[Rfam]
RNA: Group II catalytic intron D1-D4-3
RNA sequence: UCCAUCGUGAGGUGGAAUCUGAAGGAAGCUGUAGGCAAAUCUCUGGUCCGACGGACAGAAAUCGCAUAUAAGGCUAGGCUACGAGAGAUAAGCUGGCAGAAAGCAACGAAGUCUAAUAACUAUCACGUUAGUAGUAGCAGAGUAAAUGCGGCGGAUAUAUGGAGAGAAAGAGCGUGCA
Numbered sequence: 001u002c003c004a005u006c007g008u009g010a011g012g013u014g015g016a017a018u019c020u021g022a023a024g025g026a027a028g029c030u031g032u033a034g035g036c037a038a039a040u041c042u043c044u045g046g047u048c049c050g051a052c053g054g055a056c057a058g059a060a061a062u063c064g065c066a067u068a069u070a071a072g073g074c075u076a077g078g079c080u081a082c083g084a085g086a087g088a089u090a091a092g093c094u095g096g097c098a099g100a101a102a103g104c105a106a107c108g109a110a111g112u113c114u115a116a117u118a119a120c121u122a123u124c125a126c127g128u129u130a131g132u133a134g135u136a137g138c139a140g141a142g143u144a145a146a147u148g149c150g151g152c153g154g155a156u157a158u159a160u161g162g163a164g165a166g167a168a169a170g171a172g173c174g175u176g177c178a
Base pairs, nucleotide, nucleotide: 001016002015003014004013005012006011030176031175032174036170040165041164042163043162044161045160046156047155048154049153050152062151063150064149065148066147067146073143074142075141078138079137080136081135082134086114087113088112089111092107094105095104